[Rfam]
RNA sequence: CCGGAUACCUUGACGGGCCGCACCGGACAAAGCGACCCGAUCCCAACGCCCC
Numbered sequence: 001c002c003g004g005a006u007a008c009c010u011u012g013a014c015g016g017g018c019c020g021c022a023c024c025g026g027a028c029a030a031a032g033c034g035a036c037c038c039g040a041u042c043c044c045a046a047c048g049c050c051c052c
Base pairs, nucleotide, nucleotide: 001026002025003024004023013041014039015038016037017036019034020033021032
Rfam assigns this 52-nucleotide RNA from Faecalibacterium prausnitzii to the family "RAGATH-5 RNA". By type it is a ribozyme. NCBI's taxonomy places the organism under Bacteria, Eubacteriales, Oscillospiraceae, Faecalibacterium, Faecalibacterium prausnitzii. The family's consensus secondary structure is taken from published work.